[Rfam]
RNA sequence: UCCUCCUACAAAGGCGUGUUUUGGGUUCCCUGUCCUUGGACACGUAAGAAUCGGAGGCAAAGAAAUGUGGUGGGUUUGGAAAGGUCUGGGACCAGCUUGCCCGCCGCAGGCUCAGGAUCAACCAUCCCACAGAG
Numbered sequence: 001u002c003c004u005c006c007u008a009c010a011a012a013g014g015c016g017u018g019u020u021u022u023g024g025g026u027u028c029c030c031u032g033u034c035c036u037u038g039g040a041c042a043c044g045u046a047a048g049a050a051u052c053g054g055a056g057g058c059a060a061a062g063a064a065a066u067g068u069g070g071u072g073g074g075u076u077u078g079g080a081a082a083g084g085u086c087u088g089g090g091a092c093c094a095g096c097u098u099g100c101c102c103g104c105c106g107c108a109g110g111c112u113c114a115g116g117a118u119c120a121a122c123c124a125u126c127c128c129a130c131a132g133a134g
Stems, first nucleotide, its partner, number of pairs: 002057005015044007024030002072127003076124001094112007